Rfam assigns this 73-nucleotide RNA sequence from Chlorocebus sabaeus to the family "Small nucleolar RNA Z40". The base pairs follow the family's consensus structure, which was predicted with PFOLD. The source organism's lineage runs through Eukaryota, Gnathostomata, Mammalia, Cercopithecinae and Chlorocebus. Gene Ontology terms of the family: nucleolus and RNA processing.

RNA sequence: AUAUGUUAUGAUAAUGAGCAAAAUGUUCAACUACUCCAAAUGGGCUGAGUGAAAAUAGGUUUUCUGAGCAUCC
Numbered sequence: 001a002u003a004u005g006u007u008a009u010g011a012u013a014a015u016g017a018g019c020a021a022a023a024u025g026u027u028c029a030a031c032u033a034c035u036c037c038a039a040a041u042g043g044g045c046u047g048a049g050u051g052a053a054a055a056u057a058g059g060u061u062u063u064c065u066g067a068g069c070a071u072c073c
Base pairs, nucleotide, nucleotide: 003071004070005069006068
Dot-bracket structure: ..((((.............................................................))))..
The match comes from Rfam's covariance-model search (72 bits).